RNA: Glycine riboswitch aptamer
RNA sequence: CGCCGUCGCGCGGGAGAGAGCUCCUCACGGAGCCGCCGAAGGCGUAACCCCCGGAACCGCUCAGGCAAAAGGACCGCCGACGAAG
Numbered sequence: 001c002g003c004c005g006u007c008g009c010g011c012g013g014g015a016g017a018g019a020g021c022u023c024c025u026c027a028c029g030g031a032g033c034c035g036c037c038g039a040a041g042g043c044g045u046a047a048c049c050c051c052c053g054g055a056a057c058c059g060c061u062c063a064g065g066c067a068a069a070a071g072g073a074c075c076g077c078c079g080a081c082g083a084a085g
Base pairs, nucleotide, nucleotide: 005081006080007079008078010077011076012075013074020033021032022031023030035066036065037064038062039061042060043059044058048054049053